This 88-nucleotide RNA from Leucobacter chromiiresistens belongs to the Rfam family "ZMP/ZTP riboswitch aptamer (pfl RNA motif)". A search with the family's covariance model found it, with a score of 51 bits. Taxonomically the source falls in Leucobacter (Bacteria, Bacillati, Actinomycetota, Micrococcales).

RNA sequence: UGAGCGCGUCGUGACUGGCGUACAGAUGGUCACCAUCGGGAAACGACACACUGCUUGCAAGGGACGGCCGCUCGCCUGGGUCGGAUCC
Numbered sequence: 001u002g003a004g005c006g007c008g009u010c011g012u013g014a015c016u017g018g019c020g021u022a023c024a025g026a027u028g029g030u031c032a033c034c035a036u037c038g039g040g041a042a043a044c045g046a047c048a049c050a051c052u053g054c055u056u057g058c059a060a061g062g063g064a065c066g067g068c069c070g071c072u073c074g075c076c077u078g079g080g081u082c083g084g085a086u087c088c
Stems, first nucleotide, its partner, number of pairs: 003052002006049001008047005015040002017076004026036004065083005